[Rfam]
Nucleotides: 238
Base pairs, nucleotide, nucleotide: 001111002110003109004108007107008106011103013101014100029076030075031074033072034071035070036069039066040065041064043062044061045060046059047058048057049056079090123163124162125161126160127159131156132152133151134150135149197220198219200217202215203214204213205212206211
Number, partner (000 for none) and nucleotide at each position: 001111c002110u003109u004108u005000u006000u007107u008106a009000c010000g011103c012000a013101u014100a015000u016000g017000u018000a019000a020000u021000c022000a023000c024000c025000u026000c027000a028000c029076u030075a031074u032000a033072u034071u035070u036069u037000a038000c039066u040065g041064u042000u043062c044061c045060u046059g047058u048057u049056g050000a051000u052000u053000u054000u055000c056049u057048a058047a059046c060045a061044g062043g063000u064041a065040c066039a067000a068000a069036a070035a071034a072033a073000c074031g075030u076029a077000u078000a079090g080000u081000a082000u083000g084000g085000u086000u087000u088000a089000u090079c091000a092000g093000u094000u095000c096000c097000u098000a099000u100014u101013a102000u103011g104000c105000g106008u107007a108004a109003a110002a111001g112000c113000u114000u115000a116000a117000a118000a119000g120000g121000a122000g123163u124162g125161c126160u127159g128000c129000c130000u131156a132152g133151c134150g135149g136000u137000a138000a139000a140000u141000a142000a143000a144000a145000a146000a147000a148000a149135c150134c151133g152132u153000u154000a155000u156131u157000a158000a159127c160126a161125g162124u163123a164000c165000c166000a167000u168000u169000u170000u171000u172000g173000c174000g175000u176000g177000u178000c179000a180000a181000a182000a183000a184000a185000u186000a187000u188000c189000u190000u191000u192000a193000c194000u195000u196000c197220a198219a199000u200217g201000g202215c203214g204213g205212u206211u207000u208000a209000a210000a211206a212205g213204c214203c215202g216000c217200c218000u219198u220197u221000u222000u223000c224000u225000u226000u227000u228000u229000u230000c231000c232000a233000u234000c235000a236000a237000a238000a
Shown here is a 238-nucleotide sequence from Erysipelatoclostridium sp. An173, a member of the family "Cis-regulator of HTH transcription factor". Rfam's curators write: This element was identified by RNA deep sequencing of Clostridioides difficile 630 where it is located immediately upstream of an uncharacterized HTH-type Transcriptional regulator. Homologues are found widely across firmicutes, consistently located 5' of transcriptional regulators of similar size and sequence, which strongly supports a cis-regulatory function. RNA is referred to as CD630_SQ2397 in ref. Note: the sequence is highly conserved and shows no evidence for covariation as per R-scape analysis. It is annotated as a cis-regulatory element. It scores 170 bits against the family's covariance model.